[Rfam]
RNA: Beta-globin co-transcriptional cleavage ribozyme
RNA sequence: UAUCAGUGUUGCCAUGAGCAACACAUUUUAACUUCAUUUUCUUAUUCAGUGUUCACUUUGAUAUAUGCUACUUUCUGGAAGGAUGGGUUUCAAGUGGUCCCUCUCCUCUAUCCCAAUUCUGAAUCUAGCUGGCAAGUAGAAAACAAUGCAUAUAAUAAGUGAUAACUGUCAAGUA
Numbered sequence: 001u002a003u004c005a006g007u008g009u010u011g012c013c014a015u016g017a018g019c020a021a022c023a024c025a026u027u028u029u030a031a032c033u034u035c036a037u038u039u040u041c042u043u044a045u046u047c048a049g050u051g052u053u054c055a056c057u058u059u060g061a062u063a064u065a066u067g068c069u070a071c072u073u074u075c076u077g078g079a080a081g082g083a084u085g086g087g088u089u090u091c092a093a094g095u096g097g098u099c100c101c102u103c104u105c106c107u108c109u110a111u112c113c114c115a116a117u118u119c120u121g122a123a124u125c126u127a128g129c130u131g132g133c134a135a136g137u138a139g140a141a142a143a144c145a146a147u148g149c150a151u152a153u154a155a156u157a158a159g160u161g162a163u164a165a166c167u168g169u170c171a172a173g174u175a
Stems, first nucleotide, its partner, number of pairs: 026172002034165001036163003041159006050063004065151004074115001077113003086109002092102001094100001117141005125136002